[Rfam]
Shown here is a 169-nucleotide RNA from Paenibacillus donghaensis, a member of the family "PyrR binding site".
A search with the family's covariance model found it, with a score of 58 bits.
For this family Rfam cites "Molecular recognition of pyr mRNA by the Bacillus subtilis attenuation regulatory protein PyrR" (Bonner et al., Nucleic Acids Res, 2001).
RNA sequence: AGCGCCUUUAAUUCAGUCCCGUGAGGCUGGCAAGGUAACGUGAAUCGAGGUUCGCGACUUAGGAAGAAAUCCGCAGCAAUGCGGGUGGUCUUUUUCUGCGCGCGGAGUUGUCCUCUUAUGAAUCUGCGGAUUUCACUCCUUGCCUGUUUUGGGCAAGGAGUUUUUGGUU
Numbered sequence: 001a002g003c004g005c006c007u008u009u010a011a012u013u014c015a016g017u018c019c020c021g022u023g024a025g026g027c028u029g030g031c032a033a034g035g036u037a038a039c040g041u042g043a044a045u046c047g048a049g050g051u052u053c054g055c056g057a058c059u060u061a062g063g064a065a066g067a068a069a070u071c072c073g074c075a076g077c078a079a080u081g082c083g084g085g086u087g088g089u090c091u092u093u094u095u096c097u098g099c100g101c102g103c104g105g106a107g108u109u110g111u112c113c114u115c116u117u118a119u120g121a122a123u124c125u126g127c128g129g130a131u132u133u134c135a136c137u138c139c140u141u142g143c144c145u146g147u148u149u150u151g152g153g154c155a156a157g158g159a160g161u162u163u164u165u166g167g168u169u
Stems, first nucleotide, its partner, number of pairs: 004036005013030006062093003066089001069086007135161011